[Rfam]
RNA sequence: GGGCAUACCCGUAGACCUUGCCUGACUGUGCUCAUGGCCAGGCAAGGGGGACAGUGUAUGCAAGAGUAAUGUGGAGUUUGUGCUAACUCUAGCCAGCUUAAUUAAUGACUGGAUAAAUUGCACAACUCUCACAUUC
Numbered sequence: 001g002g003g004c005a006u007a008c009c010c011g012u013a014g015a016c017c018u019u020g021c022c023u024g025a026c027u028g029u030g031c032u033c034a035u036g037g038c039c040a041g042g043c044a045a046g047g048g049g050g051a052c053a054g055u056g057u058a059u060g061c062a063a064g065a066g067u068a069a070u071g072u073g074g075a076g077u078u079u080g081u082g083c084u085a086a087c088u089c090u091a092g093c094c095a096g097c098u099u100a101a102u103u104a105a106u107g108a109c110u111g112g113a114u115a116a117a118u119u120g121c122a123c124a125a126c127u128c129u130c131a132c133a134u135u136c
Base pairs, nucleotide, nucleotide: 003061004060005059006058007057008056016047017046018045019044020043021042022041023040024039073129074128075127076126078125081122082121083120093112094111095110096109